The family of this 75-nucleotide RNA from Pan troglodytes is "Small nucleolar RNA MBII-202". The literature on the family includes a 2001 paper in EMBO J by Huttenhofer et al., "RNomics: an experimental approach that identifies 201 candidates for novel, small, non-messenger RNAs in mouse". Rfam classes the family as a C/D-box small nucleolar RNA.

RNA sequence: UUCUUACAAAUCUAAAUGUGCUUUGAUGCAAGUAUAUUUGAACCCCUUUCCAUCUGAUAACUGAGCAAAAUAAUA
Numbered sequence: 001u002u003c004u005u006a007c008a009a010a011u012c013u014a015a016a017u018g019u020g021c022u023u024u025g026a027u028g029c030a031a032g033u034a035u036a037u038u039u040g041a042a043c044c045c046c047u048u049u050c051c052a053u054c055u056g057a058u059a060a061c062u063g064a065g066c067a068a069a070a071u072a073a074u075a
Stems, first nucleotide, its partner, number of pairs: 002075001004073003
The sequence is in the family's curated seed alignment. Taxonomically the source falls in Pan (Eukaryota, Eumetazoa, Bilateria, Chordata).